The record is a 96-nucleotide RNA sequence from Marinitenerispora sediminis, which matches "Glycine riboswitch aptamer" in Rfam. Pairs were carried over by alignment from the consensus structure. Rfam links the family to the GO term glycine biosynthetic process. NCBI's taxonomy places the organism under Bacteria, Actinomycetota, Actinomycetes, Nocardiopsidaceae, Marinitenerispora.
RNA sequence: CGAGACCACUCUGGAAAGCAGGGGCCGCGGCCCCUCGCCGAAGGUGCAAGCCACCCUGUGGUGAAGCUCUCAGGCUCCGAUGACAGAGGGGGAGGA
Numbered sequence: 001c002g003a004g005a006c007c008a009c010u011c012u013g014g015a016a017a018g019c020a021g022g023g024g025c026c027g028c029g030g031c032c033c034c035u036c037g038c039c040g041a042a043g044g045u046g047c048a049a050g051c052c053a054c055c056c057u058g059u060g061g062u063g064a065a066g067c068u069c070u071c072a073g074g075c076u077c078c079g080a081u082g083a084c085a086g087a088g089g090g091g092g093a094g095g096a
Stems, first nucleotide, its partner, number of pairs: 006091002009088005020035004037075003040071002044069001046067001050062002